[Rfam]
RNA sequence: GCAAAGCAUCCAGAGUCGGACUGACCGACGCCAACCUGCCCUCCCGGGCAAGGUGGAAGCCCUCGAGGCGAUGCGGCCGAUUUACGGCAACGAAGCGGGAGCAG
Numbered sequence: 001g002c003a004a005a006g007c008a009u010c011c012a013g014a015g016u017c018g019g020a021c022u023g024a025c026c027g028a029c030g031c032c033a034a035c036c037u038g039c040c041c042u043c044c045c046g047g048g049c050a051a052g053g054u055g056g057a058a059g060c061c062c063u064c065g066a067g068g069c070g071a072u073g074c075g076g077c078c079g080a081u082u083u084a085c086g087g088c089a090a091c092g093a094a095g096c097g098g099g100a101g102c103a104g
Stems, first nucleotide, its partner, number of pairs: 006074005015029005031056002035053003038049003042100005076088004
The record is a 104-nucleotide sequence from Paraburkholderia acidiphila, which matches "SAM-I/IV (S-adenosyl methionine) riboswitch aptamer" in Rfam. The family is grouped with related families in Rfam's "SAM clan". The organism belongs to Paraburkholderia, within Bacteria.